[Rfam]
RNA sequence: GGGUGCUCUGGAUCUUUGUAUCUAGAGCCUGCGUGAAAGGUACAAAGAGAAAAGCCCCGAGUCGAUAUUCAUCAACCCGAGGCCAACUCUAACGCCAGACAACGUUAAGUUAGCCUCUUACCCGCCGCGAGGCAAGGAGAAGAAGGCAUGAUG
Number, nucleotide and partner (000 for none) at each position: 001g058002g057003g056004u000005g055006c054007u053008c000009u052010g000011g000012a000013u048014c047015u046016u045017u044018g043019u042020a041021u040022c039023u038024a000025g000026a000027g034028c033029c000030u000031g000032c000033g028034u027035g000036a000037a000038a023039g022040g021041u020042a019043c018044a017045a016046a015047g014048a013049g000050a000051a000052a009053a007054g006055c005056c003057c002058c001059g078060a000061g076062u075063c000064g073065a072066u071067a000068u000069u000070c000071a066072u065073c064074a000075a062076c061077c000078c059079g117080a116081g115082g114083c113084c000085a000086a111087c000088u109089c000090u107091a106092a105093c104094g103095c000096c000097a000098g000099a000100c000101a000102a000103c094104g093105u092106u091107a090108a000109g088110u000111u086112a000113g083114c082115c081116u080117c079118u000119u000120a000121c146122c145123c000124g000125c142126c000127g000128c000129g000130a000131g000132g000133c000134a000135a000136g000137g000138a000139g000140a000141a000142g125143a000144a000145g122146g121147c000148a000149u000150g000151a000152u000153g000